[Rfam]
Notes
The record is a 197-nucleotide RNA from Thalassotalea mangrovi, which matches "Lysine riboswitch aptamer" in Rfam. It scores 87 bits against the family's covariance model. The literature on the family includes a 2003 paper in Cell by Mandal et al., "Riboswitches Control Fundamental Biochemical Pathways in Bacillus subtilis and Other Bacteria". The source organism's lineage runs through Bacteria, Pseudomonadati, Gammaproteobacteria, Alteromonadales and Thalassotalea.
RNA sequence: AGGGCCAGAAGAGGAGCGUUAACCAGGUAAUUAUCCGGAGGAGAUCAAACUCCAUUGAAGGGUAAUGAGGGGGAUUAGCGCCGAGGUGGCAAACCAUUCAACCCGGGUUGAAUGCGAUUUUUGAUGAUCAUGCUACCGGCUGUGCAGGCUGAAUCCUGGCAGCUGUCACCCGUACAAGGUGGAGAGCUUCUGGUCUU
Number, nucleotide and partner (000 for none) at each position: 001a000002g000003g000004g000005c000006c192007a191008g190009a189010a188011g187012a000013g000014g000015a000016g081017c080018g079019u078020u077021a076022a075023c000024c073025a000026g000027g000028u000029a000030a066031u065032u064033a063034u062035c061036c060037g000038g000039a000040g000041g000042a000043g000044a000045u000046c000047a000048a000049a000050c000051u000052c000053c000054a000055u000056u000057g000058a000059a000060g036061g035062g034063u033064a032065a031066u030067g000068a000069g000070g000071g000072g000073g024074a000075u022076u021077a020078g019079c018080g017081c016082c000083g000084a000085g137086g136087u135088g134089g133090c132091a131092a000093a000094c000095c000096a000097u000098u000099c000100a000101a000102c000103c000104c000105g000106g000107g000108u000109u000110g000111a000112a000113u000114g000115c000116g000117a000118u000119u000120u000121u000122u000123g000124a000125u000126g000127a000128u000129c000130a000131u091132g090133c089134u088135a087136c086137c085138g164139g163140c162141u161142g160143u159144g000145c158146a157147g156148g155149c000150u000151g000152a000153a000154u000155c148156c147157u146158g145159g143160c142161a141162g140163c139164u138165g000166u182167c181168a180169c179170c178171c000172g000173u000174a000175c000176a000177a000178g170179g169180u168181g167182g166183a000184g000185a000186g000187c011188u010189u009190c008191u007192g006193g000194u000195c000196u000197u000